[Rfam]
RNA sequence: AGUGAGGGUAGAGGUGCAAAGAUCAUUAGUAAACAUGCGGAAGAGUAUGAGCUCUCGUGAAACAUGUUAAAAGGGGUAUUUGCCGAAGUAAAUGGAUACUCAUAACCCAUUUGCUGGGACUGUUUUGAAUAAGAACAGGACUGUCAUAUAGCACAUGCUAUAUGGAGGGCUAUCUCACAC
Numbered sequence: 001a002g003u004g005a006g007g008g009u010a011g012a013g014g015u016g017c018a019a020a021g022a023u024c025a026u027u028a029g030u031a032a033a034c035a036u037g038c039g040g041a042a043g044a045g046u047a048u049g050a051g052c053u054c055u056c057g058u059g060a061a062a063c064a065u066g067u068u069a070a071a072a073g074g075g076g077u078a079u080u081u082g083c084c085g086a087a088g089u090a091a092a093u094g095g096a097u098a099c100u101c102a103u104a105a106c107c108c109a110u111u112u113g114c115u116g117g118g119a120c121u122g123u124u125u126u127g128a129a130u131a132a133g134a135a136c137a138g139g140a141c142u143g144u145c146a147u148a149u150a151g152c153a154c155a156u157g158c159u160a161u162a163u164g165g166a167g168g169g170c171u172a173u174c175u176c177a178c179a180c
Stems, first nucleotide, its partner, number of pairs: 006175006016083005022077003032068006087115009097105001116142002120138007144165007
This 180-nucleotide RNA from Halalkalibacter suaedae belongs to the Rfam family "Lysine riboswitch aptamer". It scores 126 bits against the family's covariance model. Pairs were carried over by alignment from the consensus structure, which is taken from published work.